[Rfam]
RNA: Selenocysteine insertion sequence 1
Organism: Mytilus coruscus
RNA sequence: GACUGUCCAUGACGUUAAAACACUAAAUUCCUAGGAUGUGUUUUAGUUGAUUUUUAGUC
Numbered sequence: 001g002a003c004u005g006u007c008c009a010u011g012a013c014g015u016u017a018a019a020a021c022a023c024u025a026a027a028u029u030c031c032u033a034g035g036a037u038g039u040g041u042u043u044u045a046g047u048u049g050a051u052u053u054u055u056a057g058u059c
Stems, first nucleotide, its partner, number of pairs: 001059003014047010029036002